[Rfam]
The family of this 115-nucleotide RNA sequence from Clostridium tyrobutyricum is "SAM riboswitch aptamer (S box leader)". The base pairs follow the family's consensus structure, which is taken from published work. A reference for the family is Grundy and Henkin (1998), "The S box regulon: a new global transcription termination control system for methionine and cysteine biosynthesis genes in gram-positive bacteria", Mol Microbiol. Lineage of the source: Bacteria > Bacillati > Bacillota > Clostridium > Clostridium tyrobutyricum.
RNA sequence: CUCUUAUCAAGAGUGGUGGAGGGAUUGGCCAUUUGAAACCCGACAACCUGCAUUUAUUUUAUAUGUAUCGGUGUCAAUUCCUACAGAGUAAAUAUUAUAUUCUGGAAGAUAAGAA
Dot-bracket structure: .(((((((....(.(((....((.[.[[)).......))))((((.((((((...........))))..))))))...(]].]((((((.........))))))..)))))))).